[Rfam]
RNA sequence: ACAGAUGGAAAGCUGCGAGGCUCGCCUCAUACAGGACAGAUGGCGGGCUUCGUGCCUCAUCCAUCAAUCCGCAUUCGCGAGCGGGCUAAGGUCUGAGCAUUCUAAUCAUUCUUGAUCGAUCCUAGCUGGAUCCAGCUGUAACCAGCUGCAACGGCGUAUCAGAAAUCCGACUCUUCGCGUUUAUCCUUCGUCUCAGAGGGAGCCCCAAAGAUCGCCGUUCGUCCUCGUGGCAGGCAGGAGGGAAUGGCGCGAAGUAGUCUUGGAACUCGCUGUAAUGAUCGGGUGGCGAUGUGUUGGCUUCGACUUCGUUCUUUUCUCUUUCGGGGGACUGGGAUGGGUCGCGUCAUGGUCGACUAUCCUUCAGCUCACUUCGCAGCGCAUGUUGUUGAUUUUCUUUGGCCUUUUGGCCAGAGAAGGUCUUCGUGCAACUCGAUUCAGACUACUCUUCGUCUGU
Numbered sequence: 001a002c003a004g005a006u007g008g009a010a011a012g013c014u015g016c017g018a019g020g021c022u023c024g025c026c027u028c029a030u031a032c033a034g035g036a037c038a039g040a041u042g043g044c045g046g047g048c049u050u051c052g053u054g055c056c057u058c059a060u061c062c063a064u065c066a067a068u069c070c071g072c073a074u075u076c077g078c079g080a081g082c083g084g085g086c087u088a089a090g091g092u093c094u095g096a097g098c099a100u101u102c103u104a105a106u107c108a109u110u111c112u113u114g115a116u117c118g119a120u121c122c123u124a125g126c127u128g129g130a131u132c133c134a135g136c137u138g139u140a141a142c143c144a145g146c147u148g149c150a151a152c153g154g155c156g157u158a159u160c161a162g163a164a165a166u167c168c169g170a171c172u173c174u175u176c177g178c179g180u181u182u183a184u185c186c187u188u189c190g191u192c193u194c195a196g197a198g199g200g201a202g203c204c205c206c207a208a209a210g211a212u213c214g215c216c217g218u219u220c221g222u223c224c225u226c227g228u229g230g231c232a233g234g235c236a237g238g239a240g241g242g243a244a245u246g247g248c249g250c251g252a253a254g255u256a257g258u259c260u261u262g263g264a265a266c267u268c269g270c271u272g273u274a275a276u277g278a279u280c281g282g283g284u285g286g287c288g289a290u291g292u293g294u295u296g297g298c299u300u301c302g303a304c305u306u307c308g309u310u311c312u313u314u315u316c317u318c319u320u321u322c323g324g325g326g327g328a329c330u331g332g333g334a335u336g337g338g339u340c341g342c343g344u345c346a347u348g349g350u351c352g353a354c355u356a357u358c359c360u361u362c363a364g365c366u367c368a369c370u371u372c373g374c375a376g377c378g379c380a381u382g383u384u385g386u387u388g389a390u391u392u393u394c395u396u397u398g399g400c401c402u403u404u405u406g407g408c409c410a411g412a413g414a415a416g417g418u419c420u421u422c423g424u425g426c427a428a429c430u431c432g433a434u435u436c437a438g439a440c441u442a443c444u445c446u447u448c449g450u451c452u453g454u
Stems, first nucleotide, its partner, number of pairs: 001454004007448003020082005039065005093438005098277004118132005133148006151273006173257001
RNA: Nuclear RNase P